[Rfam]
RNA sequence: AAUGGACCUGGUCUGAGCUGCCGGGUGGCUAUUCCGGGCGCCGAUCCCUCGGACAACG
Dot-bracket structure: .....((((((.........))))))......((((((.........)))))).....
Numbered sequence: 001a002a003u004g005g006a007c008c009u010g011g012u013c014u015g016a017g018c019u020g021c022c023g024g025g026u027g028g029c030u031a032u033u034c035c036g037g038g039c040g041c042c043g044a045u046c047c048c049u050c051g052g053a054c055a056a057c058g
Stems, first nucleotide, its partner, number of pairs: 006026006033053006